[Rfam]
RNA sequence: GUUUCCGUCCCCUUGCGGGGAAUUGAUAGGAAUUAAC
Numbered sequence: 001g002u003u004u005c006c007g008u009c010c011c012c013u014u015g016c017g018g019g020g021a022a023u024u025g026a027u028a029g030g031a032a033u034u035a036a037c
Base pairs, nucleotide, nucleotide: 006025008021009020010019011018012017
Dot-bracket structure: .....(.(((((....)))))...)............